[Rfam]
RNA sequence: UGGAAUUGUAUAGCUUUACCUCAUAUAGAGUUGGAGAUAAGGUCCAAACGUUUCUACCCGGCAGCCGUAAACCGCCGGACUAUGAGGGGAAGAGGCACCUUU
Numbered sequence: 001u002g003g004a005a006u007u008g009u010a011u012a013g014c015u016u017u018a019c020c021u022c023a024u025a026u027a028g029a030g031u032u033g034g035a036g037a038u039a040a041g042g043u044c045c046a047a048a049c050g051u052u053u054c055u056a057c058c059c060g061g062c063a064g065c066c067g068u069a070a071a072c073c074g075c076c077g078g079a080c081u082a083u084g085a086g087g088g089g090a091a092g093a094g095g096c097a098c099c100u101u102u
Stems, first nucleotide, its partner, number of pairs: 019087007031047005058078005064072001